Rfam assigns this 284-nucleotide RNA sequence from Nannospalax galili to the family "Mason-Pfizer monkey virus packaging signal".
RNA sequence: UGGAGCCCAACGUGGGGCUGGAUACUGGGGGACAACGUGAGGGUCCGACGACAAAGGAAAAGAAGGGGUGUGCACCCGAUCAAACAAACAAGAGCUCGGAGACGUCUUGGUAGCCUGCUGUGACUGAGCCGACAGGUAAGUUGGUCUUUCAAUCAUGGGGCAAGAAUUGAGUCAGCAUCAGAAAUAUGUAAUACAGUUAAAAGAAGCUUUACAGGCAAGAGGAGUAAAGGUUACAACUGAGGAUUUAUUUCAUUUCUUUGAUUUUGUGAAAGACAUCUGCCCAU
Number, nucleotide and partner (000 for none) at each position: 001u000002g000003g000004a000005g000006c030007c029008c028009a000010a000011c000012g025013u024014g023015g000016g000017g000018c000019u000020g000021g000022a000023u014024a013025c012026u000027g000028g008029g007030g006031g000032a000033c000034a000035a000036c050037g049038u048039g000040a000041g000042g000043g000044u000045c000046c000047g000048a038049c037050g036051a000052c000053a000054a000055a000056g000057g000058a000059a000060a000061a000062g000063a000064a000065g000066g000067g000068g000069u000070g000071u000072g000073c000074a000075c000076c000077c000078g000079a000080u000081c000082a000083a000084a000085c000086a000087a000088a000089c000090a000091a000092g000093a000094g137095c136096u135097c000098g133099g000100a000101g000102a000103c128104g000105u000106c122107u000108u120109g119110g118111u000112a000113g000114c000115c000116u000117g000118c110119u109120g108121u000122g106123a000124c000125u000126g000127a000128g103129c000130c000131g000132a000133c098134a000135g096136g095137u094138a000139a000140g000141u000142u000143g000144g161145u160146c000147u000148u159149u158150c157151a156152a000153u000154c000155a000156u151157g150158g149159g148160g145161c144162a000163a000164g000165a000166a000167u000168u211169g210170a209171g207172u206173c000174a000175g000176c000177a000178u000179c000180a000181g000182a000183a000184a000185u000186a000187u000188g000189u000190a000191a000192u000193a000194c000195a000196g000197u000198u000199a000200a000201a000202a000203g000204a000205a000206g172207c171208u000209u170210u169211a168212c000213a000214g000215g000216c000217a000218a000219g259220a258221g257222g256223a255224g254225u000226a000227a000228a246229g245230g244231u243232u242233a000234c000235a000236a000237c000238u000239g000240a000241g000242g232243a231244u230245u229246u228247a000248u000249u000250u000251c000252a000253u000254u224255u223256c222257u221258u220259u219260g000261a000262u000263u000264u000265u000266g000267u000268g000269a284270a000271a000272g281273a000274c279275a000276u000277c000278u000279g274280c000281c272282c000283a000284u269
The organism belongs to Nannospalax, within Eukaryota.
It is annotated as a cis-regulatory element.